Shown here is an 85-nucleotide RNA sequence from Pan troglodytes, a member of the family "mir-3927 microRNA precursor family". It scores 92 bits against the family's covariance model.
RNA sequence: CCCAAUGUGCCAAUGCCUAUCAAAUAUCUGCCUGUCCUAUGACAAACAUGGCAGGUAGAUAUUUGAUAGGCAUUGGCACACUGGC
Numbered sequence: 001c002c003c004a005a006u007g008u009g010c011c012a013a014u015g016c017c018u019a020u021c022a023a024a025u026a027u028c029u030g031c032c033u034g035u036c037c038u039a040u041g042a043c044a045a046a047c048a049u050g051g052c053a054g055g056u057a058g059a060u061a062u063u064u065g066a067u068a069g070g071c072a073u074u075g076g077c078a079c080a081c082u083g084g085c
Base pairs, nucleotide, nucleotide: 002084003083004082006080007079008078009077010076011075012074013073014072015071016070017069018068019067020066021065022064023063024062025061026060027059028058029057030056031055032054033053034052035051036050038048040046